[Rfam]
This 76-nucleotide RNA sequence from Dialister succinatiphilus belongs to the Rfam family "c-di-GMP-I riboswitch aptamer".
RNA sequence: UAGGUAUAAAGGCAAAGCAGGUGAAAAUCUGUGACGCAAAACUAUAGGGCCUGUUACAUGGCAGCCAGCUGCAACG
Numbered sequence: 001u002a003g004g005u006a007u008a009a010a011g012g013c014a015a016a017g018c019a020g021g022u023g024a025a026a027a028u029c030u031g032u033g034a035c036g037c038a039a040a041a042c043u044a045u046a047g048g049g050c051c052u053g054u055u056a057c058a059u060g061g062c063a064g065c066c067a068g069c070u071g072c073a074a075c076g
Stems, first nucleotide, its partner, number of pairs: 012037002017032006040070001042068002047066002049062003
Description: Pairs were carried over by alignment from the consensus structure, which is taken from published work.